[Rfam]
RNA sequence: ACAGGGUUAGCUGAAAACCUGUAAUAGAGUAGGCA
Numbered sequence: 001a002c003a004g005g006g007u008u009a010g011c012u013g014a015a016a017a018c019c020u021g022u023a024a025u026a027g028a029g030u031a032g033g034c035a
Stems, first nucleotide, its partner, number of pairs: 002021004010034003
A member of the RNA family "DUF805b RNA" from Mucilaginibacter paludis, 35 nucleotides long.
By type it is a cis-regulatory element.
Its Rfam clan is "DUF805 clan".
The base pairs follow the family's consensus structure, which is taken from published work.
Rfam's curators put it in the seed alignment.